[Rfam]
Nucleotides: 394
Stems, first nucleotide, its partner, number of pairs: 002394006008387004014321006022074001023072006038056007079378002082376004095109003197292003205288005215280003218275001220273002323363005
Number, partner (000 for none) and nucleotide at each position: 001000u002394c003393c004392u005391c006390g007389c008387u009386c010385a011384a012000a013000g014321a015320a016319u017318c018317g019316c020000a021000u022074u023072c024071a025070a026069a027068g028067c029000u030000c031000a032000c033000a034000c035000a036000c037000a038056g039055g040054g041053a042052a043051u044050a045000c046000c047000u048000c049000g050044u051043a052042u053041u054040c055039u056038c057000u058000u059000g060000c061000c062000c063000u064000c065000u066000u067028g068027c069026u070025u071024u072023g073000g074022g075000a076000g077000a078000a079378a080377g081000u082376c083375c084374c085373c086000g087000g088000a089000c090000a091000c092000c093000c094000u095109g096108a097107c098000u099000g100000u101000u102000u103000a104000a105000a106000c107097g108096u109095c110000u111000c112000u113000u114000g115000u116000a117000g118000a119000c120000c121000c122000a123000g124000u125000c126000a127000g128000g129000c130000a131000a132000u133000g134000c135000g136000g137000a138000a139000a140000c141000g142000c143000g144000c145000c146000g147000c148000c149000a150000u151000a152000g153000a154000a155000g156000c157000a158000a159000u160000u161000c162000g163000a164000u165000a166000g167000c168000g169000g170000c171000u172000u173000a174000u175000u176000g177000c178000c179000c180000u181000a182000u183000u184000c185000c186000c187000u188000c189000c190000c191000a192000g193000u194000g195000u196000u197292g198291g199290c200000g201000c202000u203000a204000u205288a206287c207286c208285c209284g210000a211000c212000a213000c214000c215280a216279g217278g218275u219000g220273g221272c222000u223000g224000a225000a226000a227000a228000g229000u230000c231000a232000g233000c234000u235000g236000g237000u238000a239000g240000g241000a242000a243000c244000c245000a246000a247000u248000g249000g250000u251000g252000g253000u254000g255000c256000g257000g258000c259000a260000c261000g262000g263000u264000g265000c266000u267000g268000g269000a270000g271000a272221g273220c274000g275218g276000g277000u278217u279216u280215u281000a282000u283000c284209u285208g286207g287206g288205u289000u290199g291198c292197c293000u294000u295000u296000c297000g298000u299000c300000g301000u302000g303000u304000u305000u306000g307000g308000a309000u310000a311000g312000u313000c314000a315000u316019g317018c318017g319016a320015u321014u322000g323363c324362c325361c326360u327359u328000g329000c330000u331000u332000c333000u334000g335000g336000u337000c338000u339000c340000c341000u342000c343000g344000u345000u346000u347000g348000a349000g350000g351000g352000g353000a354000u355000u356000g357000g358000a359327g360326a361325g362324g363323g364000u365000a366000a367000c368000u369000c370000a371000a372000u373085g374084g375083g376082g377080c378079u379000c380000a381000u382000u383000c384011u385010u386009g387008a388000g389007g390006c391005g392004a393003g394002g
Record summary: The record is a 394-nucleotide sequence from Aspergillus sclerotioniger, which matches "RNase MRP" in Rfam. By type it is a ribozyme. The family's consensus secondary structure is taken from published work.